[Rfam]
RNA sequence: GAAAGACGCGCAUUUGUUAUCAUCAUCCCUGUUCUUCGAGAGAUGAAAUUUUGGCCACAGAGAUGUGGCCUUUU
Numbered sequence: 001g002a003a004a005g006a007c008g009c010g011c012a013u014u015u016g017u018u019a020u021c022a023u024c025a026u027c028c029c030u031g032u033u034c035u036u037c038g039a040g041a042g043a044u045g046a047a048a049u050u051u052u053g054g055c056c057a058c059a060g061a062g063a064u065g066u067g068g069c070c071u072u073u074u
Stems, first nucleotide, its partner, number of pairs: 024045004029040002053070007
RNA: MicA sRNA
Organism: Kosakonia cowanii